[Rfam]
RNA: Small nucleolar RNA SNORA84
Organism: Clarias magur
RNA sequence: GCCUGGUGGUUCCUUGAGGCUGCUCAUCUGUGCUGAUCAUCAAGGUUGUAUUACACAGGCAAAUAGAAAAGUCUUCAGUUUAAUGCGUGGGAGUUUCUACCUUUGUGACUUCCACAGCCCGGCUGGAGAUACAUUC
Numbered sequence: 001g002c003c004u005g006g007u008g009g010u011u012c013c014u015u016g017a018g019g020c021u022g023c024u025c026a027u028c029u030g031u032g033c034u035g036a037u038c039a040u041c042a043a044g045g046u047u048g049u050a051u052u053a054c055a056c057a058g059g060c061a062a063a064u065a066g067a068a069a070a071g072u073c074u075u076c077a078g079u080u081u082a083a084u085g086c087g088u089g090g091g092a093g094u095u096u097c098u099a100c101c102u103u104u105g106u107g108a109c110u111u112c113c114a115c116a117g118c119c120c121g122g123c124u125g126g127a128g129a130u131a132c133a134u135u136c
Base pairs, nucleotide, nucleotide: 001060002059003058004057007050008049012045013044014043015042016041017040019037020035022033023032073128075126076125077124078123079122080121085118086117087115088114089113090112092110093109094108095107097105